[Rfam]
A member of the RNA family "Selenocysteine insertion sequence 1" from Dryobates pubescens, 66 nucleotides long. Rfam classes the family as a cis-regulatory element.
RNA sequence: GCCAGCCCCCAUGACGGUCUGCCUUCAAACCAGCCUGCUGGUGAGGCAAGACCUGAAGAUCCUGGC
Numbered sequence: 001g002c003c004a005g006c007c008c009c010c011a012u013g014a015c016g017g018u019c020u021g022c023c024u025u026c027a028a029a030c031c032a033g034c035c036u037g038c039u040g041g042u043g044a045g046g047c048a049a050g051a052c053c054u055g056a057a058g059a060u061c062c063u064g065g066c
Stems, first nucleotide, its partner, number of pairs: 001066005016053004020048006031040003

The match comes from Rfam's covariance-model search (38 bits).